[Rfam]
RNA sequence: CAGUGAGUAAGUCCUUCCCGAAAAGGAUGAUACCACCCUGAGGUGGAUGGGACGAAGUAGGGAAGGGUUCACGU
Numbered sequence: 001c002a003g004u005g006a007g008u009a010a011g012u013c014c015u016u017c018c019c020g021a022a023a024a025g026g027a028u029g030a031u032a033c034c035a036c037c038c039u040g041a042g043g044u045g046g047a048u049g050g051g052a053c054g055a056a057g058u059a060g061g062g063a064a065g066g067g068u069u070c071a072c073g074u
Base pairs, nucleotide, nucleotide: 003072004071005070006069012067013066014065015064016063017062018061019060033046034045035044036043037042
Record summary
The family of this 74-nucleotide sequence is "DUF3800-X RNA". Rfam's curators put it in the seed alignment. The base pairs follow the family's consensus structure, which is taken from published work.